[Rfam]
The record is a 190-nucleotide RNA from Danio rerio, which matches "Small nucleolar RNA SNORA81" in Rfam. Rfam 15.1 lists 1,161 matches to the family in 643 species. On this family, see Gu et al., Nucleic Acids Res 2005: "A novel experimental approach for systematic identification of box H/ACA snoRNAs from eukaryotes".
RNA sequence: CCCUUCUUUUUAAAAAGCGCCAUGCUAAAACCACCAGGUCGAUGCUUUCGGGUCUCGCUCUGGUGUUCAUGCUAGUACUGGUUAAAUCACAAAGAAGGAAGAGCAAAAAGCACACAGUCGGAAAUGAGUCUAGGACGGACCUCUUUCUUAAUGUCCGGUGUCCGAGGUCUCAAGAUUUUGUGCCACAUGC
Numbered sequence: 001c002c003c004u005u006c007u008u009u010u011u012a013a014a015a016a017g018c019g020c021c022a023u024g025c026u027a028a029a030a031c032c033a034c035c036a037g038g039u040c041g042a043u044g045c046u047u048u049c050g051g052g053u054c055u056c057g058c059u060c061u062g063g064u065g066u067u068c069a070u071g072c073u074a075g076u077a078c079u080g081g082u083u084a085a086a087u088c089a090c091a092a093a094g095a096a097g098g099a100a101g102a103g104c105a106a107a108a109a110g111c112a113c114a115c116a117g118u119c120g121g122a123a124a125u126g127a128g129u130c131u132a133g134g135a136c137g138g139a140c141c142u143c144u145u146u147c148u149u150a151a152u153g154u155c156c157g158g159u160g161u162c163c164g165a166g167g168u169c170u171c172a173a174g175a176u177u178u179u180g181u182g183c184c185a186c187a188u189g190c
Base pairs, nucleotide, nucleotide: 020081021080023077024076025075026074027073030070033067036061037060040057041056042055044053045052046051110183111182112181113180114179116177117176132161134159136157137156138155139154
The source organism's lineage runs through Eukaryota, Craniata, Neopterygii, Clupeocephala and Danio.